Small nucleolar RNA SNORA57: a 148-nucleotide RNA sequence from Cnephaeus nilssonii.
A search with the family's covariance model found it, with a score of 117 bits.
The source organism's lineage runs through Eukaryota, Eumetazoa, Craniata, Yangochiroptera and Cnephaeus.
The base pairs follow the family's consensus structure, which was predicted with PFOLD.
The family has 26 seed sequences and 1,736 matches in Rfam 15.1.
About the family: U99 belongs to the H/ACA class of snoRNAs which are thought to guide the sites of modification of uridines to pseudouridines, the target for this family is unknown.
Rfam links the family to the GO terms RNA processing and nucleolus.

RNA sequence: CCUCCUCUUCUUGGCGGGGUCUGGCGUGCUGGUCCCAGUCCCCGAAAUAUGUGGAGCAGAGGAUAGGCGCUCCUGCCCCCUUGGUGGCAUGUCUUCAGUGCCGAUGGUUUCCAGUCCGCUGGUUCUAUCCUCAAGCACCGGGACACGG
Numbered sequence: 001c002c003u004c005c006u007c008u009u010c011u012u013g014g015c016g017g018g019g020u021c022u023g024g025c026g027u028g029c030u031g032g033u034c035c036c037a038g039u040c041c042c043c044g045a046a047a048u049a050u051g052u053g054g055a056g057c058a059g060a061g062g063a064u065a066g067g068c069g070c071u072c073c074u075g076c077c078c079c080c081u082u083g084g085u086g087g088c089a090u091g092u093c094u095u096c097a098g099u100g101c102c103g104a105u106g107g108u109u110u111c112c113a114g115u116c117c118g119c120u121g122g123u124u125c126u127a128u129c130c131u132c133a134a135g136c137a138c139c140g141g142g143a144c145a146c147g148g
Base pairs, nucleotide, nucleotide: 002056003055004054005053015044016043017042018041019040022037023036024035082140083139084138085137086136101122102121103120105118106117107116

On this family, see Vitali et al., Nucleic Acids Res 2003: "Identification of 13 novel human modification guide RNAs".